[Rfam]
RNA sequence: AUAUAAGCAAAAUUCACUUUUUAGGUUCAUUCAUUUAAUGAUGUAUAUAGUUUAUAAUAUGGACCACAUACAUCAUUAAAUGAAUGAACUUAAAAAAUGAAUUUUGCUUAUAU
Numbered sequence: 001a002u003a004u005a006a007g008c009a010a011a012a013u014u015c016a017c018u019u020u021u022u023a024g025g026u027u028c029a030u031u032c033a034u035u036u037a038a039u040g041a042u043g044u045a046u047a048u049a050g051u052u053u054a055u056a057a058u059a060u061g062g063a064c065c066a067c068a069u070a071c072a073u074c075a076u077u078a079a080a081u082g083a084a085u086g087a088a089c090u091u092a093a094a095a096a097a098u099g100a101a102u103u104u105u106g107c108u109u110a111u112a113u
Base pairs, nucleotide, nucleotide: 002112003111004110005109006108007107008106009105010104011103012102014100015099016098018096019095020094021093022092023091024090026088027087028086029085030084031083032082033081034080035079036078037077038076039075040074041073042072043071048066050064051063
RNA: MIR2593 microRNA precursor family